[Rfam]
RNA sequence: GUACCGAUGGGUGAGAGGUUGAAACCGCCAGACUGUAAAUCUGGUCCGUAAAAAGCGCGCUGGUUCGAAUCCGGCUCGGUACA
Numbered sequence: 001g002u003a004c005c006g007a008u009g010g011g012u013g014a015g016a017g018g019u020u021g022a023a024a025c026c027g028c029c030a031g032a033c034u035g036u037a038a039a040u041c042u043g044g045u046c047c048g049u050a051a052a053a054a055g056c057g058c059g060c061u062g063g064u065u066c067g068a069a070u071c072c073g074g075c076u077c078g079g080u081a082c083a
Base pairs, nucleotide, nucleotide: 001082002081003080004079005078006077007076010026011025012024028044029043030042031041032040059075060074061073062072063071
The record is an 83-nucleotide RNA from Paenibacillus faecis, which matches "tRNA" in Rfam. On this family, see Lowe and Eddy, Nucleic Acids Res 1997: "tRNAscan-SE: a program for improved detection of transfer RNA genes in genomic sequence". Rfam describes the family as follows. Transfer RNA (tRNA) molecules are approximately 80 nucleotides in length. By type it is a transfer RNA. Rfam links the family to the GO term triplet codon-amino acid adaptor activity.